[Rfam]
RNA sequence: AAGACAUCGAGAACCCUUUGAAUCACUACAUUACUUGAUUCAAAUGGUUCU
Numbered sequence: 001a002a003g004a005c006a007u008c009g010a011g012a013a014c015c016c017u018u019u020g021a022a023u024c025a026c027u028a029c030a031u032u033a034c035u036u037g038a039u040u041c042a043a044a045u046g047g048u049u050c051u
Stems, first nucleotide, its partner, number of pairs: 010051006017044009
RNA: Plastid-ccsA-ndhD-1 3UTR RNA
Organism: Cucumis melo